[Rfam]
RNA: ZMP/ZTP riboswitch aptamer (pfl RNA motif)
Organism: Dysosmobacter segnis
RNA sequence: UGGUGAUCAUAUGACUGACGGAAGUGGAUGUUACCACAUGGAGUAUGAUCGUGAAACCAGCCGACCGUCUGGGCAGAAAAA
Numbered sequence: 001u002g003g004u005g006a007u008c009a010u011a012u013g014a015c016u017g018a019c020g021g022a023a024g025u026g027g028a029u030g031u032u033a034c035c036a037c038a039u040g041g042a043g044u045a046u047g048a049u050c051g052u053g054a055a056a057c058c059a060g061c062c063g064a065c066c067g068u069c070u071g072g073g074c075a076g077a078a079a080a081a
Base pairs, nucleotide, nucleotide: 003052004051005050006049007048008047009046010045011044012043015040017069018068019067020066021065024037025036026035027034058076060074061073062072